[Rfam]
RNA sequence: UAGUACCUUCAGGGCAGGGUGUAAUUCCCGACCGGCGGUGAUAGUCCGCGAGCCUAACGGCUGACUUGGUGUAAUUCCAAGACCGACAGUAAAGUCUGGAUGGAAGAAGGUUUAU
Numbered sequence: 001u002a003g004u005a006c007c008u009u010c011a012g013g014g015c016a017g018g019g020u021g022u023a024a025u026u027c028c029c030g031a032c033c034g035g036c037g038g039u040g041a042u043a044g045u046c047c048g049c050g051a052g053c054c055u056a057a058c059g060g061c062u063g064a065c066u067u068g069g070u071g072u073a074a075u076u077c078c079a080a081g082a083c084c085g086a087c088a089g090u091a092a093a094g095u096c097u098g099g100a101u102g103g104a105a106g107a108a109g110g111u112u113u114a115u
Base pairs, nucleotide, nucleotide: 003113005111006110007109008108009107010106017029018028019027031095032094033085034084035049036048037047038046044083045082052061053060054059065081066080067079068078069077087098088097089096